[Rfam]
RNA: U4atac minor spliceosomal RNA
RNA sequence: AUAGUCCUUGUCGAAGGGAGCUCGUUACUUCAAUGAACGUUUAGUGAGAAUUAACUAGCUGACACCCCACGAUACAAACACAUAGUGUCUGCUUGUGACUUCUUGUUCAUAAGUAGAGCAAUUUCUGUUCUC
Numbered sequence: 001a002u003a004g005u006c007c008u009u010g011u012c013g014a015a016g017g018g019a020g021c022u023c024g025u026u027a028c029u030u031c032a033a034u035g036a037a038c039g040u041u042u043a044g045u046g047a048g049a050a051u052u053a054a055c056u057a058g059c060u061g062a063c064a065c066c067c068c069a070c071g072a073u074a075c076a077a078a079c080a081c082a083u084a085g086u087g088u089c090u091g092c093u094u095g096u097g098a099c100u101u102c103u104u105g106u107u108c109a110u111a112a113g114u115a116g117a118g119c120a121a122u123u124u125c126u127g128u129u130c131u132c
Stems, first nucleotide, its partner, number of pairs: 005019005020059003025054003029050003037045002085119002088117003093112006